[Rfam]
RNA sequence: GAGGGCAGGAAAAGCAUGGCCACGCAGCGAACACACAGGGAGCUUGCUCCCAGAUAUGCUGCGGGGAAAGUCCCCGUGCCUUGGGGCAGAAAGUGCCACUGGGAGACCGGAAGACCUUGGCACUAGAGCCAUCAGCGAAGCACAAGUGGAGUUGUGGUUCUGGUGUUUUGGUCCUUUGCAGUAGCAAAGUCAUGCCGUGAGCGUUUGCAAGAACGCCAACCGAACGGGGCUCACUCUUUCCAUGCCCU
Numbered sequence: 001g002a003g004g005g006c007a008g009g010a011a012a013a014g015c016a017u018g019g020c021c022a023c024g025c026a027g028c029g030a031a032c033a034c035a036c037a038g039g040g041a042g043c044u045u046g047c048u049c050c051c052a053g054a055u056a057u058g059c060u061g062c063g064g065g066g067a068a069a070g071u072c073c074c075c076g077u078g079c080c081u082u083g084g085g086g087c088a089g090a091a092a093g094u095g096c097c098a099c100u101g102g103g104a105g106a107c108c109g110g111a112a113g114a115c116c117u118u119g120g121c122a123c124u125a126g127a128g129c130c131a132u133c134a135g136c137g138a139a140g141c142a143c144a145a146g147u148g149g150a151g152u153u154g155u156g157g158u159u160c161u162g163g164u165g166u167u168u169u170g171g172u173c174c175u176u177u178g179c180a181g182u183a184g185c186a187a188a189g190u191c192a193u194g195c196c197g198u199g200a201g202c203g204u205u206u207g208c209a210a211g212a213a214c215g216c217c218a219a220c221c222g223a224a225c226g227g228g229g230c231u232c233a234c235u236c237u238u239u240c241c242a243u244g245c246c247c248u
Stems, first nucleotide, its partner, number of pairs: 002248005008241005015199006023064001024062006038051005069231002072229004085097004099110004112172001120166010133154004201216006